This 68-nucleotide RNA from Streptomyces chattanoogensis belongs to the Rfam family "ASdes TB sRNA".
[Rfam]
RNA sequence: AGCUCGACCGGGUCCACCGCGCGGCUGGUGAGCAGGUAGUCGCGCAUCACGAUGCCGUGUCGGCCCUC
Numbered sequence: 001a002g003c004u005c006g007a008c009c010g011g012g013u014c015c016a017c018c019g020c021g022c023g024g025c026u027g028g029u030g031a032g033c034a035g036g037u038a039g040u041c042g043c044g045c046a047u048c049a050c051g052a053u054g055c056c057g058u059g060u061c062g063g064c065c066c067u068c
Stems, first nucleotide, its partner, number of pairs: 004063003008059001012029002015027002018024001035056004040052003044048001